[Rfam]
RNA: Small nucleolar RNA SNORA72
RNA sequence: CUACGAGUAUUCUUGCUGUUCUGAUUUCCUAAUAGUCGAGGCAGGCUAAACAUUCACUAUAUUAAGACCAUGCAUGUGUCCCCAGAUCUACUUCUUUUCCUAAGAAAAGAAGUUUUUAUAAAUGGUUUUAUAAAUGCUGGUGAUAAAC
Numbered sequence: 001c002u003a004c005g006a007g008u009a010u011u012c013u014u015g016c017u018g019u020u021c022u023g024a025u026u027u028c029c030u031a032a033u034a035g036u037c038g039a040g041g042c043a044g045g046c047u048a049a050a051c052a053u054u055c056a057c058u059a060u061a062u063u064a065a066g067a068c069c070a071u072g073c074a075u076g077u078g079u080c081c082c083c084a085g086a087u088c089u090a091c092u093u094c095u096u097u098u099c100c101u102a103a104g105a106a107a108a109g110a111a112g113u114u115u116u117u118a119u120a121a122a123u124g125g126u127u128u129u130a131u132a133a134a135u136g137c138u139g140g141u142g143a144u145a146a147a148c
Base pairs, nucleotide, nucleotide: 005055016044017043018042019041020040022038023037024036025035026034067141068140069139070138072137073136082125083124084123087120089118090117